[Rfam]
tRNA: a 73-nucleotide sequence from Knufia peltigerae.
By type it is a transfer RNA.
Gene Ontology term of the family: triplet codon-amino acid adaptor activity.
NCBI's taxonomy places the organism under Eukaryota, Ascomycota, Pezizomycotina, Chaetothyriales, Knufia.
RNA sequence: AAGGCUAUAGCUUAAUCGGUAAAGCCAACUGCUCAUGACAGUUAAGAUGAGUGUUCAAAUCAUUCUGGCCUUA
Dot-bracket structure: (((((((..((((........)))).(((((.......))))).....(((((.......)))))))))))).
Numbered sequence: 001a002a003g004g005c006u007a008u009a010g011c012u013u014a015a016u017c018g019g020u021a022a023a024g025c026c027a028a029c030u031g032c033u034c035a036u037g038a039c040a041g042u043u044a045a046g047a048u049g050a051g052u053g054u055u056c057a058a059a060u061c062a063u064u065c066u067g068g069c070c071u072u073a
Stems, first nucleotide, its partner, number of pairs: 001072007010025004027043005049065005